[Rfam]
RNA: tRNA
RNA sequence: UAGAAUGAAGCUCGCUGGAUAGAGUGUUUAGCUGUUAACUAAAAUAUUACGGGAUCGAGGCCCGUCAUUCUAG
Numbered sequence: 001u002a003g004a005a006u007g008a009a010g011c012u013c014g015c016u017g018g019a020u021a022g023a024g025u026g027u028u029u030a031g032c033u034g035u036u037a038a039c040u041a042a043a044a045u046a047u048u049a050c051g052g053g054a055u056c057g058a059g060g061c062c063c064g065u066c067a068u069u070c071u072a073g
Base pairs, nucleotide, nucleotide: 001072002071003070004069005068006067007066010025011024012023013022027043028042029041030040031039049065050064051063052062053061